[Rfam]
RNA sequence: GGGGUGUGCGCGAGACUUACCUCCACGUGGUGCACCCUAGGCAACGUAUAUUUAUACGGCAAAAAUGUCUAU
Numbered sequence: 001g002g003g004g005u006g007u008g009c010g011c012g013a014g015a016c017u018u019a020c021c022u023c024c025a026c027g028u029g030g031u032g033c034a035c036c037c038u039a040g041g042c043a044a045c046g047u048a049u050a051u052u053u054a055u056a057c058g059g060c061a062a063a064a065a066u067g068u069c070u071a072u
Stems, first nucleotide, its partner, number of pairs: 001038007019031003045058005

This 72-nucleotide RNA from Rodentolepis nana belongs to the Rfam family "HDV ribozyme from F. prausnitzii". Lineage of the source: Eukaryota > Metazoa > Cyclophyllidea > Hymenolepididae > Rodentolepis. Its family is annotated with catalytic activity in the Gene Ontology. It scores 47 bits against the family's covariance model.